The record is a 36-nucleotide RNA from Flavobacterium aquatile, which matches "S4-Flavobacteria ribosomal protein leader" in Rfam.
Its Rfam clan is "Ribosomal Protein S4 Leader clan".

[Rfam]
Nucleotides: 036
Base pairs, nucleotide, nucleotide: 001036002035003034004033005032006031008030010024011023012022
Number, partner (000 for none) and nucleotide at each position: 001036g002035a003034u004033u005032a006031u007000c008030g009000a010024a011023g012022g013000a014000u015000u016000u017000a018000u019000u020000g021000a022012c023011c024010u025000g026000a027000a028000u029000u030008c031006a032005u033004a034003a035002u036001c